[Rfam]
terC RNA: a 60-nucleotide sequence from Croceibacterium xixiisoli. By type it is a cis-regulatory element. The match comes from Rfam's covariance-model search (67 bits).
RNA sequence: CCUGCGGGCCGGGCCCCUCUGGCGAUUGUCUUCGGGCAAUCGUGAUGUCGGACCGCAUCG
Numbered sequence: 001c002c003u004g005c006g007g008g009c010c011g012g013g014c015c016c017c018u019c020u021g022g023c024g025a026u027u028g029u030c031u032u033c034g035g036g037c038a039a040u041c042g043u044g045a046u047g048u049c050g051g052a053c054c055g056c057a058u059c060g
Stems, first nucleotide, its partner, number of pairs: 006054002009051004022043008